Lysine riboswitch aptamer: a 181-nucleotide sequence from Kurthia sp. 11kri321. Rfam's curators write: Riboswitches are metabolite binding domains within certain messenger RNAs that serve as precision sensors for their corresponding targets. Allosteric rearrangement of mRNA structure is mediated by ligand binding, and this results in modulation of gene expression.

[Rfam]
Nucleotides: 181
Stems, first nucleotide, its partner, number of pairs: 006176006017084009033069007088117006095110005118145002122141003126138004148165006
Number, partner (000 for none) and nucleotide at each position: 001000c002000g003000a004000u005000g006176a007175g008174g009173u010172a011171g012000a013000g014000g015000u016000c017084g018083c019082a020081a021080a022079a023078a024077a025076u026000a027000a028000a029000a030000g031000u032000a033069a034068u035067a036066u037065a038064g039063u040000c041000g042000a043000g044000a045000u046000g047000u048000a049000a050000a051000a052000g053000c054000a055000u056000u057000g058000g059000u060000g061000a062000c063039a064038u065037u066036a067035u068034a069033u070000g071000a072000a073000a074000g075000g076025a077024u078023u079022u080021u081020u082019u083018g084017c085000c086000g087000a088117a089116g090115u091114g092113g093112u094000g095110g096109a097108u098107u099106g100000c101000u102000u103000u104000u105000a106099c107098a108097a109096u110095c111000a112093a113092c114091u115090g116089c117088u118145g119144g120000g121000g122141c123140u124139g125000u126138c127137g128136c129135u130000u131000a132000a133000u134000a135129g136128g137127u138126g139124c140123a141122g142000a143000a144119c145118u146000g147000u148165c149164a150163c151162a152161u153160c154000u155000g156000u157000g158000a159000g160153g161152g162151u163150g164149u165148g166000u167000u168000g169000a170000g171011c172010u173009a174008u175007c176006u177000u178000u179000u180000u181000c
The source organism's lineage runs through Bacteria, Bacilli, Caryophanales, Caryophanaceae and Kurthia.